Source information
A member of the RNA family "c-di-AMP riboswitch aptamer (ydaO/yuaA leader)" from Rhodococcus maanshanensis, 205 nucleotides long. Its family is annotated with regulation of gene expression and cyclic-di-AMP binding in the Gene Ontology.
[Rfam]
RNA sequence: AACCUCGUCCCGCGGAACCGGAUUCCCACGAGUUACCCAGGGACGAGGACGGGGGACCCACGUCCCCGGUGGACACCGAGGAAAGCGUGCAAGCGCAUUCCUCUUGGGGUGAAGCCAGACCCGCACCACCCAGGAGCGGCGAGGCCGGGCGACCUCUCAGCCCGAACCCGACAGCUGACCUCGCAGGCGCGUGAGGAGAGGAAAA
Numbered sequence: 001a002a003c004c005u006c007g008u009c010c011c012g013c014g015g016a017a018c019c020g021g022a023u024u025c026c027c028a029c030g031a032g033u034u035a036c037c038c039a040g041g042g043a044c045g046a047g048g049a050c051g052g053g054g055g056a057c058c059c060a061c062g063u064c065c066c067c068g069g070u071g072g073a074c075a076c077c078g079a080g081g082a083a084a085g086c087g088u089g090c091a092a093g094c095g096c097a098u099u100c101c102u103c104u105u106g107g108g109g110u111g112a113a114g115c116c117a118g119a120c121c122c123g124c125a126c127c128a129c130c131c132a133g134g135a136g137c138g139g140c141g142a143g144g145c146c147g148g149g150c151g152a153c154c155u156c157u158c159a160g161c162c163c164g165a166a167c168c169c170g171a172c173a174g175c176u177g178a179c180c181u182c183g184c185a186g187g188c189g190c191g192u193g194a195g196g197a198g199a200g201g202a203a204a205a
Base pairs, nucleotide, nucleotide: 003048004047005046006045007044008043009042010041011040050183051182052181053180054179059106060105107169108168109167115144116143147163148162149161150160
Description:
Lineage of the source: Bacteria > Bacillati > Mycobacteriales > Nocardiaceae > Rhodococcus. It scores 50 bits against the family's covariance model.